[Rfam]
RNA sequence: CCCAGAGGUAUUGAUUGGUGAGAAUUCUAAGUACGGAAUCGUACUCAUCUCUUGCACCAGCCUGCGCAGAUGCGCAGGUUUUUUUU
Dot-bracket structure: ...............(((((..(......((((((....))))))..)......)))))((((((((....)))))))).......

A member of the RNA family "OmrA-B family" from Enterobacter sp. 638, 86 nucleotides long. The sequence is in the family's curated seed alignment.